[Rfam]
Notes: This 60-nucleotide RNA belongs to the Rfam family "L2-Alphaproteobacteria ribosomal protein leader". The literature on the family includes a 2020 paper in BMC Microbiol by Eckert and Weinberg, "Discovery of 20 novel ribosomal leader candidates in bacteria and archaea".

RNA sequence: GGGGACCUUCGGGGCCCUUAACCCGGGUCGCAAGGCCCGAUAGCUAACGGAAGACAGAGA
Numbered sequence: 001g002g003g004g005a006c007c008u009u010c011g012g013g014g015c016c017c018u019u020a021a022c023c024c025g026g027g028u029c030g031c032a033a034g035g036c037c038c039g040a041u042a043g044c045u046a047a048c049g050g051a052a053g054a055c056a057g058a059g060a
Base pairs, nucleotide, nucleotide: 001018002017003016004015006014007013008012025038026037027036028035029034